Rfam assigns this 122-nucleotide sequence from Nyssa sinensis to the family "mir-393 microRNA precursor family". A search with the family's covariance model found it, with a score of 70 bits. Rfam links the family to the GO terms RISC complex and miRNA-mediated post-transcriptional gene silencing.
RNA sequence: GAUGGAAAAUUCCUAAGGGAUCGCAUGAUCCGAUGAACAAACCAAAUGAACAAAAAAGAACCCAUGAAUCCAUUAAAAUUCAACUGAUCUCGGAUCAAUGCGAUCCCUUUGGAACUCUCCAC
Numbered sequence: 001g002a003u004g005g006a007a008a009a010u011u012c013c014u015a016a017g018g019g020a021u022c023g024c025a026u027g028a029u030c031c032g033a034u035g036a037a038c039a040a041a042c043c044a045a046a047u048g049a050a051c052a053a054a055a056a057a058g059a060a061c062c063c064a065u066g067a068a069u070c071c072a073u074u075a076a077a078a079u080u081c082a083a084c085u086g087a088u089c090u091c092g093g094a095u096c097a098a099u100g101c102g103a104u105c106c107c108u109u110u111g112g113a114a115c116u117c118u119c120c121a122c
Stems, first nucleotide, its partner, number of pairs: 003121004008116001010114004015109007023101003026097006035089001